A member of the RNA family "Small nucleolar RNA SNORA72" from Erinaceus europaeus, 120 nucleotides long. Its family is annotated with nucleolus and RNA processing in the Gene Ontology.
RNA sequence: CAGUGAAUAUUCUUGCUGUUCUGGUUUUAUAAUAAUCAGGGAAGGCUAAACAUUCACUACAUUAAGACCAUGCAUGUGUCCCCAGACCUAGUUCUGGUUUUAUAAAUGCUGGUGAUAAAC
Number, nucleotide and partner (000 for none) at each position: 001c000002a000003g057004u056005g055006a000007a000008u000009a000010u000011u000012c000013u000014u000015g000016c044017u043018g000019u041020u040021c039022u038023g037024g036025u035026u034027u000028u000029a000030u000031a000032a000033u000034a026035a025036u024037c023038a022039g021040g020041g019042a000043a017044g016045g000046c000047u000048a000049a000050a000051c000052a000053u000054u000055c005056a004057c003058u000059a000060c000061a000062u000063u000064a000065a000066g000067a113068c112069c111070a110071u000072g109073c108074a000075u000076g000077u000078g000079u000080c000081c000082c097083c096084a095085g094086a093087c000088c000089u000090a000091g000092u000093u086094c085095u084096g083097g082098u000099u000100u000101u000102a000103u000104a000105a000106a000107u000108g073109c072110u070111g069112g068113u067114g000115a000116u000117a000118a000119a000120c000

Overview
For this family Rfam cites "The family of box ACA small nucleolar RNAs is defined by an evolutionarily conserved secondary structure and ubiquitous sequence elements essential for RNA accumulation" (Ganot et al., Genes Dev, 1997). U72 is a member of the H/ACA class of snoRNAs. The snoRNA gene is located in intron 4 of the ribosomal L30 protein gene in human, mouse and chicken. The base pairs follow the family's consensus structure, which was predicted with PFOLD. By type it is an H/ACA-box small nucleolar RNA.